[Rfam]
RNA sequence: AAGCUGGCCUGUCCCUGGGUAAACUCCCAAGGAUCAGGUGGAGAUUGAAUCCCGAUCCUUGGGUUUCUGCUCUCGGGCAAGGUCAGCAGU
Number, nucleotide and partner (000 for none) at each position: 001a000002a000003g087004c086005u085006g084007g083008c082009c081010u080011g078012u077013c076014c075015c000016u000017g072018g071019g070020u069021a068022a000023a000024c000025u000026c063027c062028c061029a060030a059031g058032g057033a056034u055035c054036a000037g052038g051039u000040g000041g000042a000043g000044a000045u000046u000047g000048a000049a000050u000051c038052c037053c000054g035055a034056u033057c032058c031059u030060u029061g028062g027063g026064u000065u000066u000067c000068u021069g020070c019071u018072c017073u000074c000075g014076g013077g012078c011079a000080a010081g009082g008083u007084c006085a005086g004087c003088a000089g000090u000
RNA: mir-1001 microRNA precursor family
Organism: Drosophila simulans